RNA sequence: UGUUAAAAAUUUUAUCUGUUUCUACUAUUAAAAAUUGGUCCAUAUAUGUCGACAUAAGACGCACGCAAUACGCAAGGUGUAAUUGUCUACUUAUUCUGUCAACCAUGCCAGUUUUCAACAAUAGAAAUAAAUGAAAAUUUUAACU
Numbered sequence: 001u002g003u004u005a006a007a008a009a010u011u012u013u014a015u016c017u018g019u020u021u022c023u024a025c026u027a028u029u030a031a032a033a034a035u036u037g038g039u040c041c042a043u044a045u046a047u048g049u050c051g052a053c054a055u056a057a058g059a060c061g062c063a064c065g066c067a068a069u070a071c072g073c074a075a076g077g078u079g080u081a082a083u084u085g086u087c088u089a090c091u092u093a094u095u096c097u098g099u100c101a102a103c104c105a106u107g108c109c110a111g112u113u114u115u116c117a118a119c120a121a122u123a124g125a126a127a128u129a130a131a132u133g134a135a136a137a138u139u140u141u142a143a144c145u
Base pairs, nucleotide, nucleotide: 002144003143004142005141006140007139008138010136011135012134013133014132015131018128019127020126021125022124023123024122026120028118029117031115032114033113